[Rfam]
About this RNA
This 87-nucleotide RNA sequence from Xylanibacillus composti belongs to the Rfam family "c-di-GMP-I riboswitch aptamer".
RNA sequence: CAGCGAUAAGGGCAAACCGCGCGAAAGCACGGGACGCAAAGCUACGGACCUAAAGCAUCGCCAUGCUAUGGUCGCCGGGCCGCCGAA
Dot-bracket structure: ...........((...(((.((....)).)))...))...(((.((((((....((((....))))...)))..)))))).......
Numbered sequence: 001c002a003g004c005g006a007u008a009a010g011g012g013c014a015a016a017c018c019g020c021g022c023g024a025a026a027g028c029a030c031g032g033g034a035c036g037c038a039a040a041g042c043u044a045c046g047g048a049c050c051u052a053a054a055g056c057a058u059c060g061c062c063a064u065g066c067u068a069u070g071g072u073c074g075c076c077g078g079g080c081c082g083c084c085g086a087a
Stems, first nucleotide, its partner, number of pairs: 012037002017032003021028002041080003045077003048072003055066004
Its family is annotated with cyclic-di-GMP binding in the Gene Ontology.